RNA: SAM riboswitch aptamer (S box leader)
Organism: Pukyongia salina
RNA sequence: GUGUUAUCAAGAAAGGUGGAGGGAUUAGACCCUGUGAAACCUUAGCAACCCUUUCUCCGGAAUGAAGGUGCUAAAUUCUACACAGCUUAGGCUGAUGAUAGAUAACAA
Numbered sequence: 001g002u003g004u005u006a007u008c009a010a011g012a013a014a015g016g017u018g019g020a021g022g023g024a025u026u027a028g029a030c031c032c033u034g035u036g037a038a039a040c041c042u043u044a045g046c047a048a049c050c051c052u053u054u055c056u057c058c059g060g061a062a063u064g065a066a067g068g069u070g071c072u073a074a075a076u077u078c079u080a081c082a083c084a085g086c087u088u089a090g091g092c093u094g095a096u097g098a099u100a101g102a103u104a105a106c107a108a
Stems, first nucleotide, its partner, number of pairs: 002107007013043005021032003026080004044072004049068002051064001053062002076100001081097002083094004
Dot-bracket structure: .(((((((....(((((...(((..[[[[)))......)))))((((.(((.((......)).)..))))))...(]]]]((((((....)))).))..)))))))).